mir-33 microRNA precursor family: a 67-nucleotide RNA sequence from Merluccius polli. A search with the family's covariance model found it, with a score of 55 bits.

RNA sequence: CUCCAGUGCAUUGUAGUUGCAUUGCACGUCUGCUUCCACAGUGCAGUGUUUCCGCUCUGCAACGGAG
Numbered sequence: 001c002u003c004c005a006g007u008g009c010a011u012u013g014u015a016g017u018u019g020c021a022u023u024g025c026a027c028g029u030c031u032g033c034u035u036c037c038a039c040a041g042u043g044c045a046g047u048g049u050u051u052c053c054g055c056u057c058u059g060c061a062a063c064g065g066a067g
Stems, first nucleotide, its partner, number of pairs: 001067004006063001007061004013055002016052001019049001021047007
The base pairs follow the family's consensus structure, which was predicted with PFOLD. Its family is annotated with gene silencing by miRNA and RISC complex in the Gene Ontology. On this family, see Li et al., BMC Genomics 2009: "Direct sequencing and expression analysis of a large number of miRNAs in Aedes aegypti and a multi-species survey of novel mosquito miRNAs".